[Rfam]
RNA: Pedo-repair RNA
Organism: Pedobacter sp. BAL39
RNA sequence: AACGAAACUUUGCAACGAUAGACCUCGGAAAUCUCUGCAAGCAAAGUAUGGAUUGAUAGACUGUUCGAUUUCUGUAACUUUAUCUCAGAAUAUGGGCGUCUUCCGUGCUGCUUGCUGGAGAACUCUGUUCUCUCCCUGCCGAGGGGGUAUCGUUGCGUGCGGGAGGCGACCAUAUUUUUUGUUCCUUUCCUGUAUUGGAUCAUUGCUUUA
Numbered sequence: 001a002a003c004g005a006a007a008c009u010u011u012g013c014a015a016c017g018a019u020a021g022a023c024c025u026c027g028g029a030a031a032u033c034u035c036u037g038c039a040a041g042c043a044a045a046g047u048a049u050g051g052a053u054u055g056a057u058a059g060a061c062u063g064u065u066c067g068a069u070u071u072c073u074g075u076a077a078c079u080u081u082a083u084c085u086c087a088g089a090a091u092a093u094g095g096g097c098g099u100c101u102u103c104c105g106u107g108c109u110g111c112u113u114g115c116u117g118g119a120g121a122a123c124u125c126u127g128u129u130c131u132c133u134c135c136c137u138g139c140c141g142a143g144g145g146g147g148u149a150u151c152g153u154u155g156c157g158u159g160c161g162g163g164a165g166g167c168g169a170c171c172a173u174a175u176u177u178u179u180u181g182u183u184c185c186u187u188u189c190c191u192g193u194a195u196u197g198g199a200u201c202a203u204u205g206c207u208u209u210a
Stems, first nucleotide, its partner, number of pairs: 012156009023144006035117001037115006045109008058101004063097005068091001070090005118132006134147003159193008168184002171181002